[Rfam]
RNA sequence: UGAGAAAAGCAGAAGUGAGAACUUCUCGCCUUGCGACUUAGGUUGUCUGGCCCAACAUGUCAAGAUUCCAUCUAGGAAGAUUAUAUGUGCGGGCUUGAUUUAUCAAGUCCGCUUUCGUUUUUCUCU
Numbered sequence: 001u002g003a004g005a006a007a008a009g010c011a012g013a014a015g016u017g018a019g020a021a022c023u024u025c026u027c028g029c030c031u032u033g034c035g036a037c038u039u040a041g042g043u044u045g046u047c048u049g050g051c052c053c054a055a056c057a058u059g060u061c062a063a064g065a066u067u068c069c070a071u072c073u074a075g076g077a078a079g080a081u082u083a084u085a086u087g088u089g090c091g092g093g094c095u096u097g098a099u100u101u102a103u104c105a106a107g108u109c110c111g112c113u114u115u116c117g118u119u120u121u122u123c124u125c126u
Stems, first nucleotide, its partner, number of pairs: 011026006028051003033046005089112009
RNA: Ribosomal protein L20 leader